Shown here is a 115-nucleotide RNA from Trifolium medium, a member of the family "MIR2593 microRNA precursor family". The organism belongs to Trifolium, within Eukaryota. The family has 7 seed sequences and 1,262 matches in Rfam 15.1. Rfam links the family to the GO terms RISC complex and miRNA-mediated post-transcriptional gene silencing. It scores 114 bits against the family's covariance model.

[Rfam]
RNA sequence: UUAUAAGCAAAACUCCACUUUUUAGAUUCAUUGAAUCAUUGAUGUAUUUAGACUGUAUUAUAGUCCAAAUACAUCAAUGAUUCAAUGAAUCUAAAAAGUGAAGUUUUGCUUAUAA
Number, nucleotide and partner (000 for none) at each position: 001u000002u114003a113004u112005a111006a110007g109008c000009a107010a106011a105012a104013c103014u000015c000016c100017a099018c098019u097020u096021u095022u094023u093024a092025g091026a000027u089028u088029c087030a086031u085032u084033g083034a082035a081036u080037c079038a078039u077040u076041g075042a074043u073044g072045u000046a000047u000048u000049u067050a000051g065052a064053c000054u000055g000056u000057a000058u000059u000060a000061u000062a000063g000064u052065c051066c000067a049068a000069a000070u000071a000072c044073a043074u042075c041076a040077a039078u038079g037080a036081u035082u034083c033084a032085a031086u030087g029088a028089a027090u000091c025092u024093a023094a022095a021096a020097a019098g018099u017100g016101a000102a000103g013104u012105u011106u010107u009108g000109c007110u006111u005112a004113u003114a002115a000